[Rfam]
RNA sequence: UGAGAUGAAAUCAGCAUUUAGACAUAUGAUUUUAUGCUGAUUACAUCUCGUG
Numbered sequence: 001u002g003a004g005a006u007g008a009a010a011u012c013a014g015c016a017u018u019u020a021g022a023c024a025u026a027u028g029a030u031u032u033u034a035u036g037c038u039g040a041u042u043a044c045a046u047c048u049c050g051u052g
Stems, first nucleotide, its partner, number of pairs: 001050007009042009018029003
Dot-bracket structure: (((((((.((((((((((((......)))....))))))))).)))))))..